[Rfam]
RNA sequence: AGAGAGGUGGCCGAGUGGUCGAAGGCGCACGCCUGGAAAGCGUGUAUUCCGUUAUCGCGGAAUCGAGGGUUCGAAUCCCUUCCUCUCUG
Numbered sequence: 001a002g003a004g005a006g007g008u009g010g011c012c013g014a015g016u017g018g019u020c021g022a023a024g025g026c027g028c029a030c031g032c033c034u035g036g037a038a039a040g041c042g043u044g045u046a047u048u049c050c051g052u053u054a055u056c057g058c059g060g061a062a063u064c065g066a067g068g069g070u071u072c073g074a075a076u077c078c079c080u081u082c083c084u085c086u087c088u089g
Stems, first nucleotide, its partner, number of pairs: 001088007010026003028044005065081005
A member of the RNA family "tRNA" from Mesohalobacter halotolerans, 89 nucleotides long. The organism belongs to Mesohalobacter, within Bacteria. The base pairs follow the family's consensus structure, which is taken from published work.